[Rfam]
RNA sequence: GAAGUCCGCCAGGCAGCCGCGGCAUCGCAAGAUGGCGAGGAAAGUCCGGGCCCCAUAGAGCAGGAUGCCGGCUAACGGCCGGGCGCCGUGAGGCGACAGACAGUGCAACAGAAAGAUACCGCCGAUGGCUCCGCAAGGAGAUCAGGCAAGGGUGAAAUGGCGGGGUAAGAGCCCACCGCGGACGUGGUGACACGGACGGCACGGCAAACCUCAUCCGGGGCAAGGCCAAAUAGGGGAGCAUUGGCGUGGCUCGCGUCGCUCCCGGGUAGGCUGCUUGAGCCUGUCGGCAACGGCAGGCCUAGAGGAAUGGCUGCCAGGCCGUCGCGUUUCGGCGCGGCGGCCCCACAGAACCCGGCUUAUCGGCGGGCUUCCGAU
Numbered sequence: 001g002a003a004g005u006c007c008g009c010c011a012g013g014c015a016g017c018c019g020c021g022g023c024a025u026c027g028c029a030a031g032a033u034g035g036c037g038a039g040g041a042a043a044g045u046c047c048g049g050g051c052c053c054c055a056u057a058g059a060g061c062a063g064g065a066u067g068c069c070g071g072c073u074a075a076c077g078g079c080c081g082g083g084c085g086c087c088g089u090g091a092g093g094c095g096a097c098a099g100a101c102a103g104u105g106c107a108a109c110a111g112a113a114a115g116a117u118a119c120c121g122c123c124g125a126u127g128g129c130u131c132c133g134c135a136a137g138g139a140g141a142u143c144a145g146g147c148a149a150g151g152g153u154g155a156a157a158u159g160g161c162g163g164g165g166u167a168a169g170a171g172c173c174c175a176c177c178g179c180g181g182a183c184g185u186g187g188u189g190a191c192a193c194g195g196a197c198g199g200c201a202c203g204g205c206a207a208a209c210c211u212c213a214u215c216c217g218g219g220g221c222a223a224g225g226c227c228a229a230a231u232a233g234g235g236g237a238g239c240a241u242u243g244g245c246g247u248g249g250c251u252c253g254c255g256u257c258g259c260u261c262c263c264g265g266g267u268a269g270g271c272u273g274c275u276u277g278a279g280c281c282u283g284u285c286g287g288c289a290a291c292g293g294c295a296g297g298c299c300u301a302g303a304g305g306a307a308u309g310g311c312u313g314c315c316a317g318g319c320c321g322u323c324g325c326g327u328u329u330c331g332g333c334g335c336g337g338c339g340g341c342c343c344c345a346c347a348g349a350a351c352c353c354g355g356c357u358u359a360u361c362g363g364c365g366g367g368c369u370u371c372c373g374a375u
Stems, first nucleotide, its partner, number of pairs: 001371010011360001012315007020037002023034004042358003046355005051220004058252004063216005068082005083097001084095004098211002103209002105205002119151002121147003127142001129140004159177002162174003178200001179198002183194004224272004234263006243257005279298008
Description:
The record is a 375-nucleotide RNA from Sulfurisoma sediminicola, which matches "Bacterial RNase P class A" in Rfam. About the family: Ribonuclease P (RNase P) is a ubiquitous endoribonuclease, found in archaea, bacteria and eukarya as well as chloroplasts and mitochondria. NCBI's taxonomy places the organism under Bacteria, Betaproteobacteria, Nitrosomonadales, Sterolibacteriaceae, Sulfurisoma. It is annotated as a ribozyme.